Overview
Shown here is a 125-nucleotide RNA sequence from Culicoidibacter larvae, a member of the family "FMN riboswitch aptamer (RFN element)". Its family is annotated with FMN binding in the Gene Ontology. Rfam's curators write: The RFN element is a highly conserved domain that is found frequently in the 5'-untranslated regions of prokaryotic mRNAs that encode for flavin mononucleotide (FMN) biosynthesis and transport proteins. This element is a metabolite-dependent riboswitch that directly binds FMN in the absence of proteins. In Bacillus subtilis, the riboswitch most likely controls gene expression by causing premature transcription termination within the 5' untranslated region of the ribDEAHT operon and precluding access to the ribosome-binding site of ypaA mRNA.The FMN riboswitch structure, reported in present an FMN-bound six-stem junction, adopts a butterfly-like scaffold, stapled together by opposingly directed but nearly identically folded peripheral domains. Pairs were carried over by alignment from the consensus structure, which is taken from published work. NCBI's taxonomy places the organism under Bacteria, Bacillota, Culicoidibacteria, Culicoidibacterales, Culicoidibacter. It scores 122 bits against the family's covariance model.
[Rfam]
RNA sequence: AAAAAUCUUCAGGGCAGGGUGAAAUUCCCGACCGGCGGUAAAGUCCGCGACCAUUUCCGUUCAGGAAAUGCUGAACCGGUGUAAUUCCGGUACCGACAGUACAGUCUGGAUGGGAGAAGUUUUUG
Numbered sequence: 001a002a003a004a005a006u007c008u009u010c011a012g013g014g015c016a017g018g019g020u021g022a023a024a025u026u027c028c029c030g031a032c033c034g035g036c037g038g039u040a041a042a043g044u045c046c047g048c049g050a051c052c053a054u055u056u057c058c059g060u061u062c063a064g065g066a067a068a069u070g071c072u073g074a075a076c077c078g079g080u081g082u083a084a085u086u087c088c089g090g091u092a093c094c095g096a097c098a099g100u101a102c103a104g105u106c107u108g109g110a111u112g113g114g115a116g117a118a119g120u121u122u123u124u125g
Stems, first nucleotide, its partner, number of pairs: 003123003007119004017029003031105002033095002035048004043093002052070002075091005097108003
Dot-bracket structure: ..(((.((((......(((.......))).[[((((((....[[))))...((...............))....(((((.......)))))]])).(((....]]))).......)))).)))..